[Rfam]
RNA sequence: GGGGCAGGUCGGGCAAUCGCGUUAAAGCAUUUUAACGAGGAAGGUCCGGACUCCACAGAGCAAGAUAGCGGCUAACAGCCGUCUGGCGACUCGCAAGACAAGCCAAGGACUAGGGCCACAGAGACGAGACUGCGUUGGGGCAUACUCAUUAUAUAUGCACUGGUACGGCUAUCUCCGUACUGCUUAGUUGAUUUUUUCAACUAUAACAAUGCAGGGUGAAACGCGGUAACCUCUAUCUGGAGCAACAUCAAAUAGGCAUGCGCGGGGUUAUCCCCACAGGGCGGCUCGUCCCAGCAUGCGGGUAGAUGGCUCGAGCCCAUAAGCAAUUAUGGGCCUAGACGAAUGAUUGCCAGCCUUCGGGCUUACAAAAUCCGGCCUAUAGACCUGUUCCACUU
Dot-bracket structure: ((((((((((((((((((.(((((((....)))))))....[[[.[[[[[((((...[[[[.((((((((((.....)))))(((((..............)))).)((...(((((............((((((((..(...............................................................)..)))))).)).........)))..)))))))))))))...((((......((((((.................((((.]]]]))))..)))))).....))))......((((((((....))))))))..........)))))))...................]]]]]]]].).))))))))))....
Numbered sequence: 001g002g003g004g005c006a007g008g009u010c011g012g013g014c015a016a017u018c019g020c021g022u023u024a025a026a027g028c029a030u031u032u033u034a035a036c037g038a039g040g041a042a043g044g045u046c047c048g049g050a051c052u053c054c055a056c057a058g059a060g061c062a063a064g065a066u067a068g069c070g071g072c073u074a075a076c077a078g079c080c081g082u083c084u085g086g087c088g089a090c091u092c093g094c095a096a097g098a099c100a101a102g103c104c105a106a107g108g109a110c111u112a113g114g115g116c117c118a119c120a121g122a123g124a125c126g127a128g129a130c131u132g133c134g135u136u137g138g139g140g141c142a143u144a145c146u147c148a149u150u151a152u153a154u155a156u157g158c159a160c161u162g163g164u165a166c167g168g169c170u171a172u173c174u175c176c177g178u179a180c181u182g183c184u185u186a187g188u189u190g191a192u193u194u195u196u197u198c199a200a201c202u203a204u205a206a207c208a209a210u211g212c213a214g215g216g217u218g219a220a221a222c223g224c225g226g227u228a229a230c231c232u233c234u235a236u237c238u239g240g241a242g243c244a245a246c247a248u249c250a251a252a253u254a255g256g257c258a259u260g261c262g263c264g265g266g267g268u269u270a271u272c273c274c275c276a277c278a279g280g281g282c283g284g285c286u287c288g289u290c291c292c293a294g295c296a297u298g299c300g301g302g303u304a305g306a307u308g309g310c311u312c313g314a315g316c317c318c319a320u321a322a323g324c325a326a327u328u329a330u331g332g333g334c335c336u337a338g339a340c341g342a343a344u345g346a347u348u349g350c351c352a353g354c355c356u357u358c359g360g361g362c363u364u365a366c367a368a369a370a371u372c373c374g375g376c377c378u379a380u381a382g383a384c385c386u387g388u389u390c391c392a393c394u395u
Stems, first nucleotide, its partner, number of pairs: 001391010011380001012351007020037007042378003046375005051242004058287004063238005068082005083107001084105004108233002113231002115227003130215002132212006140204001246308004256299006279291004315334008
Record summary: The family of this 395-nucleotide RNA from Paenalcaligenes hominis is "Bacterial RNase P class A". The organism belongs to Paenalcaligenes, within Bacteria. It is annotated as a ribozyme. A search with the family's covariance model found it, with a score of 220 bits. Pairs were carried over by alignment from the consensus structure, which is taken from published work.